Rfam assigns this 54-nucleotide RNA sequence from Butyricicoccus porcorum to the family "Streptococcus sRNA SpF59 (ldcC RNA)". It scores 73 bits against the family's covariance model. Pairs were carried over by alignment from the consensus structure, which was predicted with mfold.
RNA sequence: GGACCACUUCACAGAUGAAGUCAAGGCCAUACGGACAGCCGGGUCCACUGCCGA
Number, nucleotide and partner (000 for none) at each position: 001g046002g045003a044004c043005c042006a021007c020008u019009u018010c017011a016012c000013a000014g000015a000016u011017g010018a009019a008020g007021u006022c000023a000024a000025g000026g000027c000028c000029a000030u000031a000032c000033g000034g000035a000036c000037a000038g000039c000040c000041g000042g005043g004044u003045c002046c001047a000048c000049u000050g000051c000052c000053g000054a000

Rfam classes the family as a small RNA.